[Rfam]
RNA sequence: CCGCAGGCUCCAGCGUGGGGGGGCCUGGCGUGGCUCCCCCCAUUCCUGCAGCACUGCCAGAGCAUCCCGGGGCCGUUUGAGGCCGCUCCCGGUGCUUCCCGGGGGCGGUUAUGAAAACCCCGGACACCC
Numbered sequence: 001c002c003g004c005a006g007g008c009u010c011c012a013g014c015g016u017g018g019g020g021g022g023g024c025c026u027g028g029c030g031u032g033g034c035u036c037c038c039c040c041c042a043u044u045c046c047u048g049c050a051g052c053a054c055u056g057c058c059a060g061a062g063c064a065u066c067c068c069g070g071g072g073c074c075g076u077u078u079g080a081g082g083c084c085g086c087u088c089c090c091g092g093u094g095c096u097u098c099c100c101g102g103g104g105g106c107g108g109u110u111a112u113g114a115a116a117a118c119c120c121c122g123g124a125c126a127c128c129c
Stems, first nucleotide, its partner, number of pairs: 003057004016042003021036005068122005083108006090101003